[Rfam]
RNA sequence: UUGUCCUGGCCUAUGCUUUCUCAGCUCCCCUGGGCGCAGCUGUAAUGGGGGAGUCUGGCAGGACACACAGGCAAUCUCCCUCUCAGUGCAGGGGGGCCAUCCUAAGUGAAGGGCUGACUCUUAAAGGCACUAGAGGAUAAU
Numbered sequence: 001u002u003g004u005c006c007u008g009g010c011c012u013a014u015g016c017u018u019u020c021u022c023a024g025c026u027c028c029c030c031u032g033g034g035c036g037c038a039g040c041u042g043u044a045a046u047g048g049g050g051g052a053g054u055c056u057g058g059c060a061g062g063a064c065a066c067a068c069a070g071g072c073a074a075u076c077u078c079c080c081u082c083u084c085a086g087u088g089c090a091g092g093g094g095g096g097c098c099a100u101c102c103u104a105a106g107u108g109a110a111g112g113g114c115u116g117a118c119u120c121u122u123a124a125a126g127g128c129a130c131u132a133g134a135g136g137a138u139a140a141u
Stems, first nucleotide, its partner, number of pairs: 002065007010058002024054003028050005079136005086128002092122005098116001100113004

This 141-nucleotide RNA sequence from Phyllostomus discolor belongs to the Rfam family "Small Cajal body specific RNA 11". About the family: scaRNAs are a specific class of small nuclear RNAs which localise to the Cajal bodies and guide the modification of RNA polymerase II transcribed spliceosomal RNAs U1, U2, U4, U5 and U12. ACA57 belongs to the H/ACA box class of guide RNAs as it has the predicted hairpin-hinge-hairpin-tail structure, conserved H/ACA-box motifs and is found associated with GAR1. ACA57 is predicted to guide the pseudouridylation of the U5 spliceosomal RNA at position U43. The family's consensus secondary structure was predicted with RNAalifold. Gene Ontology terms of the family: nucleolus, Cajal body and RNA processing.